A member of the RNA family "Mammalian CPEB3 ribozyme" from Crocodylus porosus, 79 nucleotides long. The base pairs follow the family's consensus structure, which is taken from published work. For this family Rfam cites "A genomewide search for ribozymes reveals an HDV-like sequence in the human CPEB3 gene" (Salehi-Ashtiani et al., Science, 2006).

RNA sequence: CUACUACUUCUUGGCCACAGCAAAAGCAUUCACAUUGCGGCCCGUCAGGUUCCAAUGAAAAAAAUCGGUGGAUUCUGCU
Numbered sequence: 001c002u003a004c005u006a007c008u009u010c011u012u013g014g015c016c017a018c019a020g021c022a023a024a025a026g027c028a029u030u031c032a033c034a035u036u037g038c039g040g041c042c043c044g045u046c047a048g049g050u051u052c053c054a055a056u057g058a059a060a061a062a063a064a065u066c067g068g069u070g071g072a073u074u075c076u077g078c079u
Stems, first nucleotide, its partner, number of pairs: 013042004019079004024074002026038003046068001048066004